mir-484 microRNA precursor family: a 68-nucleotide RNA from Myotis davidii.

Nucleotides: 068
Base pairs, nucleotide, nucleotide: 003066004065005064007062008061010059011058013057014056015055016053017052018051019050024046026045031040032039033038
Number, partner (000 for none) and nucleotide at each position: 001000u002000c003066g004065u005064c006000a007062g008061g009000c010059u011058c012000a013057g014056u015055c016053c017052c018051c019050u020000c021000c022000c023000g024046a025000u026045a027000a028000a029000c030000c031040c032039u033038u034000a035000a036000a037000u038033a039032g040031g041000a042000a043000c044000c045026u046024u047000g048000c049000c050019g051018g052017g053016g054000c055015g056014g057013u058011g059010g060000c061008c062007c063000c064005g065004g066003c067000u068000u
A search with the family's covariance model found it, with a score of 66 bits. The literature on the family includes a 2010 paper in Mol Hum Reprod by Ahn et al., "MicroRNA transcriptome in the newborn mouse ovaries determined by massive parallel sequencing". The source organism's lineage runs through Eukaryota, Eumetazoa, Chordata, Gnathostomata and Myotis.